[Rfam]
Annotation:
The record is a 247-nucleotide RNA from Oscillatoriales cyanobacterium USR001, which matches "Group I catalytic intron" in Rfam. Rfam describes the family as follows. Group I catalytic introns are large self-splicing ribozymes. They catalyse their own excision from mRNA, tRNA and rRNA precursors in a wide range of organisms. Rfam 15.1 lists 5,602 matches to the family in 1,395 species. For this family Rfam cites "Self-splicing of group I introns" (Cech, Annu Rev Biochem, 1990). A search with the family's covariance model found it, with a score of 91 bits.
RNA sequence: CAAAAGCUGAAAUAACAUAGCAGCUUUAUCCGGUAACGGGUAAUGAAAAAUCGGGUGAAUUCAAGGAAGCCGCAGCACUUAAUGGUGGCGGUAAUCUUGAGCCAAGUCUGGCGAAAGGCAGUGGUUUUCACAGGUAGCCAGAAAGGUGCAGAGACUAGAGAUGAGGAGCCUAUCCAAUAAAUCUCAUAGCGCCCGACAUCCCAAAAUAGGGAUGAUGAAAUAGUCCACCCCUUACGGAAACGUUCGG
Numbered sequence: 001c002a003a004a005a006g007c008u009g010a011a012a013u014a015a016c017a018u019a020g021c022a023g024c025u026u027u028a029u030c031c032g033g034u035a036a037c038g039g040g041u042a043a044u045g046a047a048a049a050a051u052c053g054g055g056u057g058a059a060u061u062c063a064a065g066g067a068a069g070c071c072g073c074a075g076c077a078c079u080u081a082a083u084g085g086u087g088g089c090g091g092u093a094a095u096c097u098u099g100a101g102c103c104a105a106g107u108c109u110g111g112c113g114a115a116a117g118g119c120a121g122u123g124g125u126u127u128u129c130a131c132a133g134g135u136a137g138c139c140a141g142a143a144a145g146g147u148g149c150a151g152a153g154a155c156u157a158g159a160g161a162u163g164a165g166g167a168g169c170c171u172a173u174c175c176a177a178u179a180a181a182u183c184u185c186a187u188a189g190c191g192c193c194c195g196a197c198a199u200c201c202c203a204a205a206a207u208a209g210g211g212a213u214g215a216u217g218a219a220a221u222a223g224u225c226c227a228c229c230c231c232u233u234a235c236g237g238a239a240a241c242g243u244u245c246g247g
Base pairs, nucleotide, nucleotide: 005025006024007023008022009021012018013017029040030039031038051196052195053194054193056191057190061100062099063098064097065096066095070091071090072089073088101147102146107141114135118131151226153225154224155223156222157221199212200211201210202209234243235242236241